Record summary
This 148-nucleotide RNA from Populus trichocarpa belongs to the Rfam family "MIR480 microRNA precursor family". The literature on the family includes a 2005 paper in Plant Cell by Lu et al., "Novel and mechanical stress-responsive MicroRNAs in Populus trichocarpa that are absent from Arabidopsis". Rfam links the family to the GO terms RISC complex and miRNA-mediated post-transcriptional gene silencing. Pairs were carried over by alignment from the consensus structure, which was predicted with WAR.

[Rfam]
RNA sequence: UAAUCUAUUUGGGGCAGAUCCUCAUUUAGUUAUGACAGACUCAUACUUAACUGCUUAAAAUCACUCGUUAUCACAAGUGUGACUGCAUCAUUGACAUUGAAAAACAGAGGACAACUACUGUGUGAAUAAUAACUUUUUGAAAUUUUAA
Numbered sequence: 001u002a003a004u005c006u007a008u009u010u011g012g013g014g015c016a017g018a019u020c021c022u023c024a025u026u027u028a029g030u031u032a033u034g035a036c037a038g039a040c041u042c043a044u045a046c047u048u049a050a051c052u053g054c055u056u057a058a059a060a061u062c063a064c065u066c067g068u069u070a071u072c073a074c075a076a077g078u079g080u081g082a083c084u085g086c087a088u089c090a091u092u093g094a095c096a097u098u099g100a101a102a103a104a105c106a107g108a109g110g111a112c113a114a115c116u117a118c119u120g121u122g123u124g125a126a127u128a129a130u131a132a133c134u135u136u137u138u139g140a141a142a143u144u145u146u147a148a
Stems, first nucleotide, its partner, number of pairs: 007143001008141002012137001014135001019125001023122003027117005